RNA sequence: ACUAUUUUUUAUUAAUUACACACACGUACUACAACGUUAGUCCGGGGUGCUUAAAUUAAGUUUUAAGUCGGUACUAAUGGGUGCGUGGAGGCCUAAC
Numbered sequence: 001a002c003u004a005u006u007u008u009u010u011a012u013u014a015a016u017u018a019c020a021c022a023c024a025c026g027u028a029c030u031a032c033a034a035c036g037u038u039a040g041u042c043c044g045g046g047g048u049g050c051u052u053a054a055a056u057u058a059a060g061u062u063u064u065a066a067g068u069c070g071g072u073a074c075u076a077a078u079g080g081g082u083g084c085g086u087g088g089a090g091g092c093c094u095a096a097c
Stems, first nucleotide, its partner, number of pairs: 023087008036078005042071003049068005
Dot-bracket structure: ......................((((((((.....(((((.(((....(((((..........))))))))..))))).))))))))..........
RNA: t44 RNA
Organism: Saccharobesus litoralis